[Rfam]
RNA: Bacterial RNase P class A
RNA sequence: AAGGACGACCAGGCGGCCGCGCCACCCCACGGGCGUGGAGGAACGUCCGGGCUCCACAGGGCAGGGUGGUUCCUAACGGCAACCCGGAGAGAUCCGCGAGCAGUGCAACAGAGAACAGACCGCCUCCGGCCCCGGCCGGCGGUAAGGGUGAAACGGUGCGGUAAGAGCGCACCACCCCGGGUGACCGGGGUGGCUCGGUGAACCUCACCCGGAGCAAGCCCAAGUGCGCCCGCGGCCGGACCGGCCGAUCGUGCAAGGUAGGGCGCCAGAUCCGGCCGGUGACGGCCGGGCGAGAUGGAUGGUCGCCACCGCGGUCACCGAUCGCGGGACAGAACCCGGCGCAUCGGUCGUCCUCGCUC
Numbered sequence: 001a002a003g004g005a006c007g008a009c010c011a012g013g014c015g016g017c018c019g020c021g022c023c024a025c026c027c028c029a030c031g032g033g034c035g036u037g038g039a040g041g042a043a044c045g046u047c048c049g050g051g052c053u054c055c056a057c058a059g060g061g062c063a064g065g066g067u068g069g070u071u072c073c074u075a076a077c078g079g080c081a082a083c084c085c086g087g088a089g090a091g092a093u094c095c096g097c098g099a100g101c102a103g104u105g106c107a108a109c110a111g112a113g114a115a116c117a118g119a120c121c122g123c124c125u126c127c128g129g130c131c132c133c134g135g136c137c138g139g140c141g142g143u144a145a146g147g148g149u150g151a152a153a154c155g156g157u158g159c160g161g162u163a164a165g166a167g168c169g170c171a172c173c174a175c176c177c178c179g180g181g182u183g184a185c186c187g188g189g190g191u192g193g194c195u196c197g198g199u200g201a202a203c204c205u206c207a208c209c210c211g212g213a214g215c216a217a218g219c220c221c222a223a224g225u226g227c228g229c230c231c232g233c234g235g236c237c238g239g240a241c242c243g244g245c246c247g248a249u250c251g252u253g254c255a256a257g258g259u260a261g262g263g264c265g266c267c268a269g270a271u272c273c274g275g276c277c278g279g280u281g282a283c284g285g286c287c288g289g290g291c292g293a294g295a296u297g298g299a300u301g302g303u304c305g306c307c308a309c310c311g312c313g314g315u316c317a318c319c320g321a322u323c324g325c326g327g328g329a330c331a332g333a334a335c336c337c338g339g340c341g342c343a344u345c346g347g348u349c350g351u352c353c354u355c356g357c358u359c
Stems, first nucleotide, its partner, number of pairs: 002354009011344001012307007020038001023035001025033003044341002047339005052214004059242002062239001064210005069083003073079001084098001085096004099205002103203002105199002120147002122143003126139005155173006175190006218264004230253001233247005271290008